This 105-nucleotide RNA sequence from Alectura lathami belongs to the Rfam family "Small nucleolar RNA SNORD125". It is annotated as a C/D-box small nucleolar RNA.
[Rfam]
RNA sequence: CCGGGGAGCGGCCUCACGUGAUGAUCCUUCUCUGCCUGAUGGCUCUGGUGGUGAUGGGCGUCAAGCCAAAGCCUCUAAGAAGUUGACUGAGGAGGCCGUUCCCUG
Numbered sequence: 001c002c003g004g005g006g007a008g009c010g011g012c013c014u015c016a017c018g019u020g021a022u023g024a025u026c027c028u029u030c031u032c033u034g035c036c037u038g039a040u041g042g043c044u045c046u047g048g049u050g051g052u053g054a055u056g057g058g059c060g061u062c063a064a065g066c067c068a069a070a071g072c073c074u075c076u077a078a079g080a081a082g083u084u085g086a087c088u089g090a091g092g093a094g095g096c097c098g099u100u101c102c103c104u105g
Stems, first nucleotide, its partner, number of pairs: 007100009